[Rfam]
This 91-nucleotide sequence from Solimonas terrae belongs to the Rfam family "Glycine riboswitch aptamer".
RNA sequence: AAAAGCAUCGCGCGAGAGACCAUCUUCAUCGAUGGCGCCGAAGGCGCAAAUCCGCCCGGAAUCGCUCAGGGUCCAAUGCCGCGCUUGCGAA
Numbered sequence: 001a002a003a004a005g006c007a008u009c010g011c012g013c014g015a016g017a018g019a020c021c022a023u024c025u026u027c028a029u030c031g032a033u034g035g036c037g038c039c040g041a042a043g044g045c046g047c048a049a050a051u052c053c054g055c056c057c058g059g060a061a062u063c064g065c066u067c068a069g070g071g072u073c074c075a076a077u078g079c080c081g082c083g084c085u086u087g088c089g090a091a
Base pairs, nucleotide, nucleotide: 007085009083010082011081012080020035021034022033023032038070039069040067041066044065045064046063051058
NCBI's taxonomy places the organism under Bacteria, Pseudomonadati, Gammaproteobacteria, Nevskiaceae, Solimonas.